[Rfam]
RNA sequence: ACAUAAUAUAAAAACCACAAUCACAUAAUACACAAACGCAUACGACCUUAAUUGGUCCUAGAACGGCCUGAGGUAGAGGGGUUUUAGUCGGUAGGUCCGAGAACUUCUUCCUCGGGAAUCCGACACUACCCAGUCGUACGGACGGCUGGGUGUCUUCUGAAGAUUUCCCCUCUUCCACGAAA
Number, nucleotide and partner (000 for none) at each position: 001a000002c000003a000004u000005a000006a000007u000008a000009u000010a000011a000012a000013a000014a000015c000016c000017a000018c000019a000020a000021u000022c000023a000024c000025a000026u000027a000028a000029u000030a000031c000032a000033c000034a000035a000036a000037c000038g000039c000040a000041u000042a000043c000044g000045a000046c000047c000048u000049u000050a000051a000052u181053u180054g000055g178056u177057c000058c000059u000060a000061g000062a000063a000064c000065g000066g000067c000068c000069u000070g000071a000072g176073g175074u000075a173076g172077a000078g169079g168080g167081g000082u000083u000084u000085u000086a000087g124088u123089c122090g121091g120092u000093a000094g000095g000096u116097c115098c114099g113100a112101g111102a109103a108104c000105u000106u000107c000108u103109u102110c000111c101112u100113c099114g098115g097116g096117a000118a000119u000120c091121c090122g089123a088124c087125a000126c152127u000128a151129c150130c149131c148132a147133g000134u000135c000136g000137u000138a000139c000140g000141g000142a000143c000144g000145g000146c000147u132148g131149g130150g129151u128152g126153u000154c000155u000156u000157c000158u000159g000160a000161a000162g000163a000164u000165u000166u000167c080168c079169c078170c000171u000172c076173u075174u000175c073176c072177a056178c055179g000180a053181a052182a000